Small nucleolar RNA SNORD83: a 78-nucleotide sequence from Rotaria sordida.
The literature on the family includes a 2000 paper in Nucleic Acids Res by Jady and Kiss, "Characterisation of the U83 and U84 small nucleolar RNAs: two novel 2'-O-ribose methylation guide RNAs that lack complementarities to ribosomal RNAs".

Nucleotides: 078
Base pairs, nucleotide, nucleotide: 001077002076003075004074031041033039034038
Number, partner (000 for none) and nucleotide at each position: 001077a002076a003075u004074a005000c006000a007000u008000c009000a010000u011000g012000u013000u014000u015000u016000c017000a018000a019000u020000u021000a022000g023000a024000a025000a026000u027000u028000a029000u030000a031041g032000c033039g034038g035000c036000a037000c038034c039033c040000c041031c042000c043000u044000u045000g046000a047000a048000u049000a050000a051000u052000a053000u054000u055000a056000u057000u058000u059000a060000c061000c062000a063000c064000c065000c066000u067000g068000u069000a070000c071000u072000g073000a074004u075003g076002u077001u078000g
Pairs were carried over by alignment from the consensus structure, which was predicted with PFOLD.